RNA: Mammalian CPEB3 ribozyme
Organism: Crocodylus porosus
Nucleotides: 080
Base pairs, nucleotide, nucleotide: 018048019047020046021045025080026079027078028077029076030075031074032044033043034042052069053068054067055066056065057064058063
Number, partner (000 for none) and nucleotide at each position: 001000a002000g003000a004000g005000g006000u007000c008000a009000u010000a011000a012000g013000u014000a015000u016000g017000a018048g019047g020046c021045u022000g023000a024000u025080a026079g027078c028077a029076g030075a031074a032044g033043u034042g035000c036000u037000c038000a039000c040000a041000a042034c043033a044032c045021a046020g047019c048018c049000u050000g051000u052069c053068a054067g055066a056065u057064u058063c059000c060000a061000a062000u063058g064057a065056a066055u067054c068053u069052g070000u071000a072000a073000a074031u075030u076029c077028u078027g079026c080025u